[Rfam]
RNA sequence: GACGUCGUGGCUCACGACGUCAGAAGAUCUCAAGUACGUGGAGGAAAAGACCCUCCUAACCCCACCAGCCCCCAUCACCCGCAUGGGUGAACUCGCCCAACUGGGCUGGAUUUCGUACGGGUUGACUGGCAUAUGCUCGCCGCGACAACUCCACAACAGACAGCGGCCCCCGGCCGGGACUGGCAUCCCGAACGAGGGCCUCACCACCAAGGAAGUAGACCCUUCCCG
Numbered sequence: 001g002a003c004g005u006c007g008u009g010g011c012u013c014a015c016g017a018c019g020u021c022a023g024a025a026g027a028u029c030u031c032a033a034g035u036a037c038g039u040g041g042a043g044g045a046a047a048a049g050a051c052c053c054u055c056c057u058a059a060c061c062c063c064a065c066c067a068g069c070c071c072c073c074a075u076c077a078c079c080c081g082c083a084u085g086g087g088u089g090a091a092c093u094c095g096c097c098c099a100a101c102u103g104g105g106c107u108g109g110a111u112u113u114c115g116u117a118c119g120g121g122u123u124g125a126c127u128g129g130c131a132u133a134u135g136c137u138c139g140c141c142g143c144g145a146c147a148a149c150u151c152c153a154c155a156a157c158a159g160a161c162a163g164c165g166g167c168c169c170c171c172g173g174c175c176g177g178g179a180c181u182g183g184c185a186u187c188c189c190g191a192a193c194g195a196g197g198g199c200c201u202c203a204c205c206a207c208c209a210a211g212g213a214a215g216u217a218g219a220c221c222c223u224u225c226c227c228g
Base pairs, nucleotide, nucleotide: 001208004205009070010069011068012067075090076089077088078087079086080085105141107139108138109137165200166199167198168197169196171194172193176189177188178187179186211226212225213224214223215222
This 228-nucleotide RNA sequence from Streptomyces sp. S4.7 belongs to the Rfam family "Streptomyces sRNA 4677". Located in the intergenic region between anti-sigma factor SCO4677 gene and a putative regulatory protein gene SCO4676. scr4677 expression requires the SCO4677 activity and scr4677 sRNA itself seem to affect the levels of the SCO4676-associated transcripts. The family's RNA type in Rfam is small RNA. A reference for the family is Hindra et al. (2014), "Complex intra-operonic dynamics mediated by a small RNA in Streptomyces coelicolor", PLoS One.